This 148-nucleotide sequence from Dioscorea zingiberensis belongs to the Rfam family "Small nucleolar RNA F1/F2/snoR5a". Lineage of the source: Eukaryota > Viridiplantae > Liliopsida > Dioscoreales > Dioscorea. The base pairs follow the family's consensus structure, which was predicted with PFOLD. The family's RNA type in Rfam is H/ACA-box small nucleolar RNA. A search with the family's covariance model found it, with a score of 64 bits. This family contains F1, F2 and snoR5a sequences, all of which are members of the the H/ACA class of snoRNA that guide the sites of modification of uridines to pseudouridines. Its family is annotated with nucleolus and RNA processing in the Gene Ontology. Rfam 15.1 lists 325 matches to the family in 97 species.
RNA sequence: CCUUGCCACUUGGUAUCUGAUGCUCUGAUCUAUAAAAGUAAUGAAAGUGCAUCUCGUUUUGUUGGCAGAUAUAAAGUGGAACAGGCCUUGCGACACUGGUUGCUCUAAUUCAGUGAGCUUCCUGUUACUAUUAUCCUUGUUCACAUCU
Numbered sequence: 001c002c003u004u005g006c007c008a009c010u011u012g013g014u015a016u017c018u019g020a021u022g023c024u025c026u027g028a029u030c031u032a033u034a035a036a037a038g039u040a041a042u043g044a045a046a047g048u049g050c051a052u053c054u055c056g057u058u059u060u061g062u063u064g065g066c067a068g069a070u071a072u073a074a075a076g077u078g079g080a081a082c083a084g085g086c087c088u089u090g091c092g093a094c095a096c097u098g099g100u101u102g103c104u105c106u107a108a109u110u111c112a113g114u115g116a117g118c119u120u121c122c123u124g125u126u127a128c129u130a131u132u133a134u135c136c137u138u139g140u141u142c143a144c145a146u147c148u
Stems, first nucleotide, its partner, number of pairs: 004067005009061001019053005025047002029044002032042001080141005095125002098122002102118003